[Rfam]
RNA sequence: AAGUUUCUUCAGGGCAGGGUGAAAAUCCCUACCGGCGGUAAAGCCCGCGAGCUAUUUUUAGCAUGAUUCGGUGAAAUUCCGAGGCCGACAGUAUAGUCUGGAUGAGAGAAGAAAAAU
Numbered sequence: 001a002a003g004u005u006u007c008u009u010c011a012g013g014g015c016a017g018g019g020u021g022a023a024a025a026u027c028c029c030u031a032c033c034g035g036c037g038g039u040a041a042a043g044c045c046c047g048c049g050a051g052c053u054a055u056u057u058u059u060a061g062c063a064u065g066a067u068u069c070g071g072u073g074a075a076a077u078u079c080c081g082a083g084g085c086c087g088a089c090a091g092u093a094u095a096g097u098c099u100g101g102a103u104g105a106g107a108g109a110a111g112a113a114a115a116a117u
Stems, first nucleotide, its partner, number of pairs: 004114007017029003031097002033087002035048004043085002053061001067083005089100003
Annotation: Rfam assigns this 117-nucleotide sequence from Clostridium chauvoei to the family "FMN riboswitch aptamer (RFN element)". Rfam's curators write: The RFN element is a highly conserved domain that is found frequently in the 5'-untranslated regions of prokaryotic mRNAs that encode for flavin mononucleotide (FMN) biosynthesis and transport proteins.